Small nucleolar RNA snoR2/U65: a 145-nucleotide RNA sequence from Rhodamnia argentea. The base pairs follow the family's consensus structure, which was predicted with WAR. Rfam classes the family as an H/ACA-box small nucleolar RNA. A reference for the family is Shaw et al. (1998), "Localization and processing from a polycistronic precursor of novel snoRNAs in maize", J Cell Sci.
RNA sequence: GGUCCGAGCCACGUCGCCGGUAGCCGGAAAAGGCAUUGACCGGCGAUGCUAUGAUUGGACCGAGAGAGAUUUGAUUCGCUCUUUGAUAGGAACCUGUGGACCUUCAUAUCUGUGGUCUACGGAGCCGUUUUUGGCGAUCACAUUC
Numbered sequence: 001g002g003u004c005c006g007a008g009c010c011a012c013g014u015c016g017c018c019g020g021u022a023g024c025c026g027g028a029a030a031a032g033g034c035a036u037u038g039a040c041c042g043g044c045g046a047u048g049c050u051a052u053g054a055u056u057g058g059a060c061c062g063a064g065a066g067a068g069a070u071u072u073g074a075u076u077c078g079c080u081c082u083u084u085g086a087u088a089g090g091a092a093c094c095u096g097u098g099g100a101c102c103u104u105c106a107u108a109u110c111u112g113u114g115g116u117c118u119a120c121g122g123a124g125c126c127g128u129u130u131u132u133g134g135c136g137a138u139c140a141c142a143u144u145c
Base pairs, nucleotide, nucleotide: 002060003059004058005057006056007055008052012048013047014046015045016044017043019041020040021039023034024033025032076137077136078135079134080133089126090125094122095121096120098118099117100116101115102114
The organism belongs to Rhodamnia, within Eukaryota. The family is grouped with related families in Rfam's "SNORA65 clan".